A member of the RNA family "Histone 3' UTR stem-loop" from Mesocricetus auratus, 46 nucleotides long. Pairs were carried over by alignment from the consensus structure, which is taken from published work. By type it is a cis-regulatory element. The source organism's lineage runs through Eukaryota, Chordata, Boreoeutheria, Rodentia and Mesocricetus. It scores 37 bits against the family's covariance model.

RNA sequence: CCAAAGGCUCUUUUCAGAGCCACUACUCAUGUCUUUUAAAGAACUG
Numbered sequence: 001c002c003a004a005a006g007g008c009u010c011u012u013u014u015c016a017g018a019g020c021c022a023c024u025a026c027u028c029a030u031g032u033c034u035u036u037u038a039a040a041g042a043a044c045u046g
Stems, first nucleotide, its partner, number of pairs: 006021006